[Rfam]
RNA sequence: CUUUUCCCAGACAUUCCUGUUGUGGUACAGUUCCGUAAUGGGGGGUGUCCUCAAGGCACUGUGGUGGUGCUACUCGAUAAUCGGGCCUGGGCGAGUUUGAGAGGAUAU
Numbered sequence: 001c002u003u004u005u006c007c008c009a010g011a012c013a014u015u016c017c018u019g020u021u022g023u024g025g026u027a028c029a030g031u032u033c034c035g036u037a038a039u040g041g042g043g044g045g046u047g048u049c050c051u052c053a054a055g056g057c058a059c060u061g062u063g064g065u066g067g068u069g070c071u072a073c074u075c076g077a078u079a080a081u082c083g084g085g086c087c088u089g090g091g092c093g094a095g096u097u098u099g100a101g102a103g104g105a106u107a108u
Base pairs, nucleotide, nucleotide: 006091007090008089009088010087019086020085023083024082026037027036028035045108046107047106048105049104050103051102052101055071056070057069058068059067060066072096073095074094075093076092
Rfam assigns this 108-nucleotide RNA sequence from Paratissierella segnis to the family "EGFOA RNA". It scores 39 bits against the family's covariance model.